Shown here is a 118-nucleotide sequence from Oryza sativa, a member of the family "mir-399 microRNA precursor family". The organism belongs to Oryza sativa, within Eukaryota. Rfam 15.1 lists 2,396 matches to the family in 221 species. The family's consensus secondary structure was predicted with PFOLD. Rfam describes the family as follows. mir-399 was identified in both Arabidopsis thaliana and Oryza sativa computationally and was later experimentally verified. mir-399 is thought to target mRNAs coding for a phosphatase transporter. Gene Ontology terms of the family: miRNA-mediated post-transcriptional gene silencing and RISC complex. A reference for the family is Jones-Rhoades and Bartel (2004), "Computational Identification of Plant MicroRNAs and Their Targets, Including a Stress-Induced miRNA", Mol Cell.
RNA sequence: ACAUGCAUUACCGGGUGAGUCUUCCUUGGCAGUGUUCGAAUCGGCAGUACCGGUCUGCAAGUGAUCGGUCAAUCACCAGUUCACCGCUGCCAAAGGAGAUUUGCCCAGCAAUGCAACU
Numbered sequence: 001a002c003a004u005g006c007a008u009u010a011c012c013g014g015g016u017g018a019g020u021c022u023u024c025c026u027u028g029g030c031a032g033u034g035u036u037c038g039a040a041u042c043g044g045c046a047g048u049a050c051c052g053g054u055c056u057g058c059a060a061g062u063g064a065u066c067g068g069u070c071a072a073u074c075a076c077c078a079g080u081u082c083a084c085c086g087c088u089g090c091c092a093a094a095g096g097a098g099a100u101u102u103g104c105c106c107a108g109c110a111a112u113g114c115a116a117c118u
Stems, first nucleotide, its partner, number of pairs: 005114005011108001013106007021098004027092008